[Rfam]
RNA sequence: UUAGAAACUUUAGCGCCAUGCACCAGUGGGGUACGGAUAACAUACACUGGUUGACGAGGAUUCAGGUGAUCGAAGGUUCGGCGGAUGCCUGAACGUGACAGGCGGUCACGUAUGCAGCAGUCAAAAAGAAAAGGUGACUUUUUAACAAAGCUUCUGCAAACCGUCUGA
Numbered sequence: 001u002u003a004g005a006a007a008c009u010u011u012a013g014c015g016c017c018a019u020g021c022a023c024c025a026g027u028g029g030g031g032u033a034c035g036g037a038u039a040a041c042a043u044a045c046a047c048u049g050g051u052u053g054a055c056g057a058g059g060a061u062u063c064a065g066g067u068g069a070u071c072g073a074a075g076g077u078u079c080g081g082c083g084g085a086u087g088c089c090u091g092a093a094c095g096u097g098a099c100a101g102g103c104g105g106u107c108a109c110g111u112a113u114g115c116a117g118c119a120g121u122c123a124a125a126a127a128g129a130a131a132a133g134g135u136g137a138c139u140u141u142u143u144a145a146c147a148a149a150g151c152u153u154c155u156g157c158a159a160a161c162c163g164u165c166u167g168a
Stems, first nucleotide, its partner, number of pairs: 022051007030043001061093005070081004094110006113158005119152001128143006

Source information
This 168-nucleotide RNA from Roseburia zhanii belongs to the Rfam family "glmS glucosamine-6-phosphate activated ribozyme aptamer". On this family, see Winkler et al., Nature 2004: "Control of gene expression by a natural metabolite-responsive ribozyme". It scores 81 bits against the family's covariance model. By type it is a riboswitch. This entry contains a glucosamine-6-phosphate activated ribozyme that is found in the mRNA for GlmS. GlmS is an enzyme that uses fructose-6-phosphate and glutamine to generate glucosamine-6-phosphate. The family's consensus secondary structure is taken from published work.